[Rfam]
The record is a 135-nucleotide RNA sequence from Agrilus planipennis, which matches "R2 RNA element" in Rfam. The family has 15 seed sequences and 3,698 matches in Rfam 15.1. A search with the family's covariance model found it, with a score of 40 bits. The organism belongs to Agrilus, within Eukaryota. Rfam classes the family as a cis-regulatory element.

RNA sequence: UAAAAUUCUAAACAGAACGGCCUGAGGUAGAGGGGUUUUAAUCGGAAGGUCCGAGGAAUUCUUCCUCGGGAAUCCGACACUACCCAGUCGUACGGACGGCUGGGUGUCUUUUGAAGAUUUCCCCUCUUUCUCGAA
Dot-bracket structure: .....(((.(...............((.((.(((.......((((....(((((((((...)))))))))...))))..(.(((((..............))))))..............)))..)).))).)))